[Rfam]
The family of this 153-nucleotide RNA sequence is "DUF2800 RNA".
RNA sequence: CUGUCUUGAGGUUCAUCCCCUGAUCAAGGAUGCCCAGAGCCGAGAGACAGCAACAGAUUAAUAACAGUCAACCCACUGGGACGGUUGGCCAUUUAAGAAGUGAGGAUUCAUUCUUAUGGCCAAUAUUUAUGGGAAGUUCCGUGUGGAUUCUCA
Numbered sequence: 001c002u003g004u005c006u007u008g009a010g011g012u013u014c015a016u017c018c019c020c021u022g023a024u025c026a027a028g029g030a031u032g033c034c035c036a037g038a039g040c041c042g043a044g045a046g047a048c049a050g051c052a053a054c055a056g057a058u059u060a061a062u063a064a065c066a067g068u069c070a071a072c073c074c075a076c077u078g079g080g081a082c083g084g085u086u087g088g089c090c091a092u093u094u095a096a097g098a099a100g101u102g103a104g105g106a107u108u109c110a111u112u113c114u115u116a117u118g119g120c121c122a123a124u125a126u127u128u129a130u131g132g133g134a135a136g137u138u139c140c141g142u143g144u145g146g147a148u149u150c151u152c153a
Stems, first nucleotide, its partner, number of pairs: 001050005007044001010041004014032005033080005066149004071144002086122005099112005
By type it is a cis-regulatory element.